[Rfam]
RNA sequence: CCUCUCAAGGAUAAUGAAGUCAUCGCCUAUCUCCUUGCUGGUCUCGGAUCUGAUUAUGAUCCGUUCGUCACAUCCAUGACAACCAAGACUGAGCCGCCCUCCCUCGACGACGUCUACUCCCACUUCCUGGCGUUUGAGG
Numbered sequence: 001c002c003u004c005u006c007a008a009g010g011a012u013a014a015u016g017a018a019g020u021c022a023u024c025g026c027c028u029a030u031c032u033c034c035u036u037g038c039u040g041g042u043c044u045c046g047g048a049u050c051u052g053a054u055u056a057u058g059a060u061c062c063g064u065u066c067g068u069c070a071c072a073u074c075c076a077u078g079a080c081a082a083c084c085a086a087g088a089c090u091g092a093g094c095c096g097c098c099c100u101c102c103c104u105c106g107a108c109g110a111c112g113u114c115u116a117c118u119c120c121c122a123c124u125u126c127c128u129g130g131c132g133u134u135u136g137a138g139g
Stems, first nucleotide, its partner, number of pairs: 004138005090106004
RNA: Small nucleolar RNA Z247
Organism: Zizania palustris